[Rfam]
RNA sequence: AUGCGCAGCCGGGGAGAUAGCGGUGCCCUGUACCCGCAAUCCGCUACAGCGGGGGUGAUGCCAAUCCGAGGGCUCUUUCAUUGCGAAGCUGCCUUCUAUAAGUGACGUUGACGUCUGGGUCUUACGCAACAGGACUCCAUGAACCGUGUCAGGGCAGGAAUGCAGCAGCACUAAGUGGAAUCUCCUGUGUGCCGUGAGGGUGCCUGGGCCGAGUAGGCUGUAGGAGUAACGUUUGUGGUGAGAGUUCGAAGUGCGGCGCGCAU
Dot-bracket structure: ((((((.(((((((.(.(...).).))))...(((((...........))))))))....((...(...(((((..((((((((((...((..((((((..((.((......((((((((((((((((.(((((.(((((.....((((....(((....)))....))))...)))))...)))))))...))))))...))))))))...))..)).)))))).))....)))))))))))))))...)...)).))))))